[Rfam]
RNA sequence: UUGCCCCGGGUUAGUCUUCUACGACCAGCUCCUCUUGAACUCCCCCAGGGUGGGAACGCAGCAAGGGUAGAGGGUUGUAGCGGUGCGAUAGAAGGUGCUAGCCCACUU
Numbered sequence: 001u002u003g004c005c006c007c008g009g010g011u012u013a014g015u016c017u018u019c020u021a022c023g024a025c026c027a028g029c030u031c032c033u034c035u036u037g038a039a040c041u042c043c044c045c046c047a048g049g050g051u052g053g054g055a056a057c058g059c060a061g062c063a064a065g066g067g068u069a070g071a072g073g074g075u076u077g078u079a080g081c082g083g084u085g086c087g088a089u090a091g092a093a094g095g096u097g098c099u100a101g102c103c104c105a106c107u108u
Stems, first nucleotide, its partner, number of pairs: 008104008017093005022087002024084002